[Rfam]
RNA sequence: UUUGGCGUCGGCGUAGCGGUGGGGGUCGUCGCCGAACUCGCCGAGGAUCCGGGCGCCGAGGAUCACACCCAGGCCGGGCAGG
Numbered sequence: 001u002u003u004g005g006c007g008u009c010g011g012c013g014u015a016g017c018g019g020u021g022g023g024g025g026u027c028g029u030c031g032c033c034g035a036a037c038u039c040g041c042c043g044a045g046g047a048u049c050c051g052g053g054c055g056c057c058g059a060g061g062a063u064c065a066c067a068c069c070c071a072g073g074c075c076g077g078g079c080a081g082g
Stems, first nucleotide, its partner, number of pairs: 008044006018038003023033002055079003060075002063072001
Dot-bracket structure: .......((((((....(((..((.......))..)))))))))..........(((..((.(........).)).)))...